[Rfam]
RNA: Small nucleolar RNA SNORA55
Organism: Rhinopomastus cyanomelas
RNA sequence: GCACCUGGAUCUUAGCUCUUCCUUGCUGUGCAGUGUGCAGGGCUGGGGAGAGCUGGGUGCUACAGCUCAGCACUGCAGAUCCACAUGGGUUAUUUUUGUGCUGGUUUGGAGCUCAUCUCUACCCCUCUGCAAGACAA
Numbered sequence: 001g002c003a004c005c006u007g008g009a010u011c012u013u014a015g016c017u018c019u020u021c022c023u024u025g026c027u028g029u030g031c032a033g034u035g036u037g038c039a040g041g042g043c044u045g046g047g048g049a050g051a052g053c054u055g056g057g058u059g060c061u062a063c064a065g066c067u068c069a070g071c072a073c074u075g076c077a078g079a080u081c082c083a084c085a086u087g088g089g090u091u092a093u094u095u096u097u098g099u100g101c102u103g104g105u106u107u108g109g110a111g112c113u114c115a116u117c118u119c120u121a122c123c124c125c126u127c128u129g130c131a132a133g134a135c136a137a
Stems, first nucleotide, its partner, number of pairs: 001060005013055007021047002070130003075125001083118001085116006097109001
Dot-bracket structure: (((((.......(((((((.((.......................)).)))))))))))).........(((..(.......(.((((((......(...........).)))))).)......)..))).......